[Rfam]
RNA sequence: GAGGUUCGGGGUCAACGCCCGGCAGCGCGAUGCGCCCCCGGGCGCGCUUGGC
Numbered sequence: 001g002a003g004g005u006u007c008g009g010g011g012u013c014a015a016c017g018c019c020c021g022g023c024a025g026c027g028c029g030a031u032g033c034g035c036c037c038c039c040g041g042g043c044g045c046g047c048u049u050g051g052c
Base pairs, nucleotide, nucleotide: 016044017043018042019041020040021039022038025035026034027033028032
Rfam assigns this 52-nucleotide RNA sequence from Beijerinckia sp. 28-YEA-48 to the family "ffh sRNA". NCBI's taxonomy places the organism under Bacteria, Alphaproteobacteria, Hyphomicrobiales, Beijerinckiaceae, Beijerinckia. A search with the family's covariance model found it, with a score of 57 bits. For this family Rfam cites "Identification of candidate structured RNAs in the marine organism 'Candidatus Pelagibacter ubique'" (Meyer et al., BMC Genomics, 2009). Pairs were carried over by alignment from the consensus structure, which is taken from published work.